[Rfam]
RNA sequence: GGUUUUAACCCAGUUACCAAGGUAAUUCGGAGUUUCGAUCUUUCGAAAGAGAGUGUCGAUUGUGAACAAUUUUUGGAAUAGCUCUUCCGGGGAAUCCGGUCGGGCAAU
Numbered sequence: 001g002g003u004u005u006u007a008a009c010c011c012a013g014u015u016a017c018c019a020a021g022g023u024a025a026u027u028c029g030g031a032g033u034u035u036c037g038a039u040c041u042u043u044c045g046a047a048a049g050a051g052a053g054u055g056u057c058g059a060u061u062g063u064g065a066a067c068a069a070u071u072u073u074u075g076g077a078a079u080a081g082c083u084c085u086u087c088c089g090g091g092g093a094a095u096c097c098g099g100u101c102g103g104g105c106a107a108u
Stems, first nucleotide, its partner, number of pairs: 007035002010030001013028001015024003036058004040053005083106001085104003089100001091097002